The family of this 128-nucleotide RNA from Rhodobium orientis is "Ruegeria cis8 sRNA". It scores 99 bits against the family's covariance model. The family has 2 seed sequences and 138 matches in Rfam 15.1. The literature on the family includes a 2016 paper in Front Microbiol by Rivers et al., "Experimental Identification of Small Non-Coding RNAs in the Model Marine Bacterium Ruegeria pomeroyi DSS-3".
[Rfam]
RNA sequence: ACCGCCAGGAUCUUCGCGAUAUAGGGGAUCAGCGGCAGGUUGAGGAUCAGGAGGAUCAGGUUGCCGAGAUACAUGGAGAUGAUCACGGCCCAGAACACUUCCGGCUUGUCGACCAUCAGCCGCGGUCC
Numbered sequence: 001a002c003c004g005c006c007a008g009g010a011u012c013u014u015c016g017c018g019a020u021a022u023a024g025g026g027g028a029u030c031a032g033c034g035g036c037a038g039g040u041u042g043a044g045g046a047u048c049a050g051g052a053g054g055a056u057c058a059g060g061u062u063g064c065c066g067a068g069a070u071a072c073a074u075g076g077a078g079a080u081g082a083u084c085a086c087g088g089c090c091c092a093g094a095a096c097a098c099u100u101c102c103g104g105c106u107u108g109u110c111g112a113c114c115a116u117c118a119g120c121c122g123c124g125g126u127c128c
Stems, first nucleotide, its partner, number of pairs: 003018003007014002026128002029125002033122004038114003043109001045107002048104001050102005056097001061093003068086001073083002